[Rfam]
RNA sequence: ACCUCCUCCCAUGAAUCACAAAUUUCCUUAAUAGCAAAUGCCAUUAGCGACAUUUGUGAUUGAUGGGAGGAGGU
Numbered sequence: 001a002c003c004u005c006c007u008c009c010c011a012u013g014a015a016u017c018a019c020a021a022a023u024u025u026c027c028u029u030a031a032u033a034g035c036a037a038a039u040g041c042c043a044u045u046a047g048c049g050a051c052a053u054u055u056g057u058g059a060u061u062g063a064u065g066g067g068a069g070g071a072g073g074u
Stems, first nucleotide, its partner, number of pairs: 002073009014061010025050002028047005034041002
The family of this 74-nucleotide sequence from Pongo abelii is "mir-4477 microRNA precursor family".
Lineage of the source: Eukaryota > Deuterostomia > Haplorrhini > Hominoidea > Pongo.
Pairs were carried over by alignment from the consensus structure, which was predicted with RNAalifold.